[Rfam]
RNA sequence: GUCCACUCAGCGGCGGACCAGAGCCAGAAGCCGGUCAUGGCAAUGGCAGCAGCCGGCCACCUGCAGGUCGUCAUCGCGCCAAGGCCGGCUGC
Numbered sequence: 001g002u003c004c005a006c007u008c009a010g011c012g013g014c015g016g017a018c019c020a021g022a023g024c025c026a027g028a029a030g031c032c033g034g035u036c037a038u039g040g041c042a043a044u045g046g047c048a049g050c051a052g053c054c055g056g057c058c059a060c061c062u063g064c065a066g067g068u069c070g071u072c073a074u075c076g077c078g079c080c081a082a083g084g085c086c087g088g089c090u091g092c
Stems, first nucleotide, its partner, number of pairs: 001018004023047004031039001049092010066079001069076001
This 92-nucleotide RNA from Rhizobium sp. RU36D belongs to the Rfam family "Rhizobiales sRNA Atu_Ti1". It is annotated as a small RNA. The organism belongs to Rhizobium, within Bacteria. Pairs were carried over by alignment from the consensus structure, which was predicted with WAR.